[Rfam]
RNA sequence: UGAGAGUUUGAGACCAUGGCAGAAGUGCUCAUGGCAUGAUCAUGUCAGAUUCCAAUGAAUCUGUGAAUUCUGCU
Numbered sequence: 001u002g003a004g005a006g007u008u009u010g011a012g013a014c015c016a017u018g019g020c021a022g023a024a025g026u027g028c029u030c031a032u033g034g035c036a037u038g039a040u041c042a043u044g045u046c047a048g049a050u051u052c053c054a055a056u057g058a059a060u061c062u063g064u065g066a067a068u069u070c071u072g073c074u
Base pairs, nucleotide, nucleotide: 012041013040015038018074019073020072021071022070023069024068025037026036027035046063047062048061049060050059051058052057
The record is a 74-nucleotide RNA sequence from Alligator mississippiensis, which matches "Mammalian CPEB3 ribozyme" in Rfam. The literature on the family includes a 2006 paper in Science by Salehi-Ashtiani et al., "A genomewide search for ribozymes reveals an HDV-like sequence in the human CPEB3 gene". The organism belongs to Alligator, within Eukaryota.